Shown here is a 99-nucleotide sequence from Geopseudomonas guangdongensis, a member of the family "Glycine riboswitch aptamer".
Taxonomically the source falls in Geopseudomonas (Bacteria, Pseudomonadota, Gammaproteobacteria, Pseudomonadales).

[Rfam]
RNA sequence: CACCCGCUCGCAGGAGAGCGAGCGUUGCGGCCACCCCGAACGCUCCGCCGAAGGCGCAAACUCCCAUAAUCGCUCAGGCCCCUGAACUGCGAAGCACCC
Numbered sequence: 001c002a003c004c005c006g007c008u009c010g011c012a013g014g015a016g017a018g019c020g021a022g023c024g025u026u027g028c029g030g031c032c033a034c035c036c037c038g039a040a041c042g043c044u045c046c047g048c049c050g051a052a053g054g055c056g057c058a059a060a061c062u063c064c065c066a067u068a069a070u071c072g073c074u075c076a077g078g079c080c081c082c083u084g085a086a087c088u089g090c091g092a093a094g095c096a097c098c099c
Base pairs, nucleotide, nucleotide: 008092009091010090011089012088013087020045021044022043023042024041025040026039047079048078049077050075051074054073055072056071060067
Dot-bracket structure: .......((((((......(((((((............))))))).(((((..(((...(......)...))))).))).......)))))).......
This family represents the bacterial glycine riboswitch. Glycine riboswitches usually consist of two metabolite-binding aptamers domains with similar structures in tandem. The aptamers cooperatively bind glycine to regulate the expression of downstream genes. In Bacillus subtilis, this riboswitch is found upstream of the gcvT operon which controls glycine degradation.